[Rfam]
RNA: Small nucleolar RNA SNORA81
RNA sequence: CCCUUCCACAUUAACAGAAGUCUGCUAUAAUUGUGUGAUCCAGAUUUGAUCUGUUUAUACAAUAAUGCUAGCAGAGUAUUGCGUGGAAGGAGAUUAUUGCUCACUGGGCUGAAAAUGAGAUGUUGUCGAACCUCUUUCUUAAUGUUCAUUGGCCUCUGUCUCAAGGUGCAGUGCAACACUU
Numbered sequence: 001c002c003c004u005u006c007c008a009c010a011u012u013a014a015c016a017g018a019a020g021u022c023u024g025c026u027a028u029a030a031u032u033g034u035g036u037g038a039u040c041c042a043g044a045u046u047u048g049a050u051c052u053g054u055u056u057a058u059a060c061a062a063u064a065a066u067g068c069u070a071g072c073a074g075a076g077u078a079u080u081g082c083g084u085g086g087a088a089g090g091a092g093a094u095u096a097u098u099g100c101u102c103a104c105u106g107g108g109c110u111g112a113a114a115a116u117g118a119g120a121u122g123u124u125g126u127c128g129a130a131c132c133u134c135u136u137u138c139u140u141a142a143u144g145u146u147c148a149u150u151g152g153c154c155u156c157u158g159u160c161u162c163a164a165g166g167u168g169c170a171g172u173g174c175a176a177c178a179c180u181u
Base pairs, nucleotide, nucleotide: 021075023073024072025071026070027069030066031065032064033063036057037056041053042052043051044050045049098175099174102173103172104171105170106169108167123152125150128147129146130145